[Rfam]
RNA sequence: GAACGUCUUCAGGGCGGGGUGCGAUUCCCCACCGGCGGUAUGCAUGCGCAAGCGUGUGAGCCCGCGAGCGCUUCGCUGCCGAUCUCUCGCUGAGAGCACGGCGGUGAAGGUCAGCAGAUCCGGUGCGAUGCCGGGGCCGACGGUAUAGUCCGGAUGAAAGAAGACGGCC
Dot-bracket structure: ...(((((((......(((.......))).[[((((((.....................[[))))..((............................................))...(((((.......)))))]])).(((....]]))).......)))))))...
FMN riboswitch aptamer (RFN element): a 169-nucleotide RNA from Xanthomonas campestris.